[Rfam]
RNA sequence: AGUCAAGAGUCCCUGUUGGGAUAGCGUCGUUUCGGCGAGCAGAUUUCUUUUGCCUAGCAAUAGGUAAAGGACAAUG
Numbered sequence: 001a002g003u004c005a006a007g008a009g010u011c012c013c014u015g016u017u018g019g020g021a022u023a024g025c026g027u028c029g030u031u032u033c034g035g036c037g038a039g040c041a042g043a044u045u046u047c048u049u050u051u052g053c054c055u056a057g058c059a060a061u062a063g064g065u066a067a068a069g070g071a072c073a074a075u076g
Base pairs, nucleotide, nucleotide: 009072010071011070012069014067026065027064028063030062032060034058037055039053040052041051042050043049